skipping-rope RNA: a 70-nucleotide RNA sequence. The base pairs follow the family's consensus structure, which is taken from published work.

RNA sequence: GAUUAUUGAGGACAGAACAGGCAUCUGUCGCCCUUGUGGAGAUGUAGGACACGCCGCCCUACCAAUAAUC
Numbered sequence: 001g002a003u004u005a006u007u008g009a010g011g012a013c014a015g016a017a018c019a020g021g022c023a024u025c026u027g028u029c030g031c032c033c034u035u036g037u038g039g040a041g042a043u044g045u046a047g048g049a050c051a052c053g054c055c056g057c058c059c060u061a062c063c064a065a066u067a068a069u070c
Stems, first nucleotide, its partner, number of pairs: 001070008011029005020055003031039001044062005
Rfam classes the family as a small RNA.